Shown here is a 68-nucleotide sequence from Polaromonas naphthalenivorans, a member of the family "ilvH RNA".
Nucleotides: 068
Base pairs, nucleotide, nucleotide: 011056012055013054015053016052017051018050019049023044024043025042026041027040028039029038030037031036
Number, partner (000 for none) and nucleotide at each position: 001000g002000a003000c004000g005000a006000a007000u008000c009000u010000a011056u012055u013054g014000a015053c016052u017051g018050c019049c020000g021000a022000g023044c024043c025042u026041g027040c028039g029038c030037a031036u032000u033000a034000c035000c036031g037030u038029g039028c040027g041026c042025a043024g044023g045000g046000g047000a048000g049019g050018g051017c052016a053015g054013c055012g056011a057000a058000a059000a060000g061000a062000g063000g064000a065000a066000u067000c068000u

Source information
By type it is a cis-regulatory element. The organism belongs to Polaromonas naphthalenivorans, within Bacteria. Pairs were carried over by alignment from the consensus structure, which is taken from published work.